[Rfam]
RNA sequence: CGCGCAGCAGGACGGAAAGACCCCGGGACCUUUACUAUAGCUUGGUAUUGGUGUUCGGUGCGGCUUGUGUAGGAUAGGUGGGAGACUGUGAUACCCGGCCGCCAGGUCGGGAGGAGUCAUCGUUGAAAUACCACUCUGGCCGCAUCGACCAUCUAACCUCGGUCCGUAAUCCGGAUCAGGGACAGUGCCUGGUGGGUAGUUUAACUGGGGCGGUUGCCUCCCAAAAUGUAACGGAGGCGCUCAAAGGUUCCCUCAGCCUGGUUGGCAAUCAGGUGUCGAGUGCAAGUGCACAAGGGAGCUUGACUGUGAGACCGACAGGUCGAGCAGGGACGAAAGUCGGAACUAGUGAUCCGGCGGUGGCUUGUGGAAGCGCCGUCGCUCAACGGAUAAAAGGUACCCCGGGGAUAACAGGCUGAUCUUGCCCAAGAGUCCAUAUCGACGGCAUGGUUUGGCACCUCGAUGUCGGCUCGUCGCAUCCUGGGGCUGGAGUAGGUCCCAAGGGUUGGGCUGUUCGCCCAUUAAAGCGGUACGCGAGCUGGGUUUAGAACGUCGUGAGACAGUUCGGUCCCUAUCCGCUGCGCGCGCA
Dot-bracket structure: ((((((((.(((.((......(((((((((((.((((...((.((((..((((.(((((((((((.(.........(((((..(((.......(((((((....)))))))....)))............)))))).))))))))))).))))...(((.((((((.....))))))))).....)))).))....))))..((((.....))))((((((...........))))))(.((....((((((((.((((((.......))))))...))((......))....))))))....((((..(((......)))..)))).(((....))).))..........(((((((.((........))))))))).....)......)))))..))))))........(((.(((.((((...((.......))...)))).))..))))..........(((((((((((..((.((((((......))))))...)).(((((.....))))).....)))))..)..)))).).....(((((((....))).))))....))..)))))))))))....
Numbered sequence: 001c002g003c004g005c006a007g008c009a010g011g012a013c014g015g016a017a018a019g020a021c022c023c024c025g026g027g028a029c030c031u032u033u034a035c036u037a038u039a040g041c042u043u044g045g046u047a048u049u050g051g052u053g054u055u056c057g058g059u060g061c062g063g064c065u066u067g068u069g070u071a072g073g074a075u076a077g078g079u080g081g082g083a084g085a086c087u088g089u090g091a092u093a094c095c096c097g098g099c100c101g102c103c104a105g106g107u108c109g110g111g112a113g114g115a116g117u118c119a120u121c122g123u124u125g126a127a128a129u130a131c132c133a134c135u136c137u138g139g140c141c142g143c144a145u146c147g148a149c150c151a152u153c154u155a156a157c158c159u160c161g162g163u164c165c166g167u168a169a170u171c172c173g174g175a176u177c178a179g180g181g182a183c184a185g186u187g188c189c190u191g192g193u194g195g196g197u198a199g200u201u202u203a204a205c206u207g208g209g210g211c212g213g214u215u216g217c218c219u220c221c222c223a224a225a226a227u228g229u230a231a232c233g234g235a236g237g238c239g240c241u242c243a244a245a246g247g248u249u250c251c252c253u254c255a256g257c258c259u260g261g262u263u264g265g266c267a268a269u270c271a272g273g274u275g276u277c278g279a280g281u282g283c284a285a286g287u288g289c290a291c292a293a294g295g296g297a298g299c300u301u302g303a304c305u306g307u308g309a310g311a312c313c314g315a316c317a318g319g320u321c322g323a324g325c326a327g328g329g330a331c332g333a334a335a336g337u338c339g340g341a342a343c344u345a346g347u348g349a350u351c352c353g354g355c356g357g358u359g360g361c362u363u364g365u366g367g368a369a370g371c372g373c374c375g376u377c378g379c380u381c382a383a384c385g386g387a388u389a390a391a392a393g394g395u396a397c398c399c400c401g402g403g404g405a406u407a408a409c410a411g412g413c414u415g416a417u418c419u420u421g422c423c424c425a426a427g428a429g430u431c432c433a434u435a436u437c438g439a440c441g442g443c444a445u446g447g448u449u450u451g452g453c454a455c456c457u458c459g460a461u462g463u464c465g466g467c468u469c470g471u472c473g474c475a476u477c478c479u480g481g482g483g484c485u486g487g488a489g490u491a492g493g494u495c496c497c498a499a500g501g502g503u504u505g506g507g508c509u510g511u512u513c514g515c516c517c518a519u520u521a522a523a524g525c526g527g528u529a530c531g532c533g534a535g536c537u538g539g540g541u542u543u544a545g546a547a548c549g550u551c552g553u554g555a556g557a558c559a560g561u562u563c564g565g566u567c568c569c570u571a572u573c574c575g576c577u578g579c580g581c582g583c584g585c586a
Stems, first nucleotide, its partner, number of pairs: 001582008010574003014569002022403006028395005034200004041192002044189004050153004055148011067136001077135005084118003094111007157180003161177006203215004216238006239384001241341002247299006253279002256274006280289002304327004310321003329338003352378007360371002412453003416450001417447002420444004427437002464539001465537004469531001470528005477502002480497006504518005545563004549558003
Bacterial large subunit ribosomal RNA: a 586-nucleotide part of an RNA from Krasilnikoviella flava.